[Rfam]
RNA sequence: AUGCUGUGAUGAUGAUCAGAGAAUGGUUUCGCACAAUUCUGAAACCUAGUGAUGUUCCAAUCUCUUGGCUGUCUGAGCAU
Number, nucleotide and partner (000 for none) at each position: 001a080002u079003g078004c077005u000006g000007u000008g000009a000010u000011g000012a000013u000014g000015a000016u000017c000018a000019g000020a000021g000022a000023a000024u000025g000026g000027u000028u000029u000030c000031g000032c000033a000034c000035a000036a000037u000038u000039c000040u000041g000042a000043a000044a000045c000046c000047u000048a000049g000050u000051g000052a000053u000054g000055u000056u000057c000058c000059a000060a000061u000062c000063u000064c000065u000066u000067g000068g000069c000070u000071g000072u000073c000074u000075g000076a000077g004078c003079a002080u001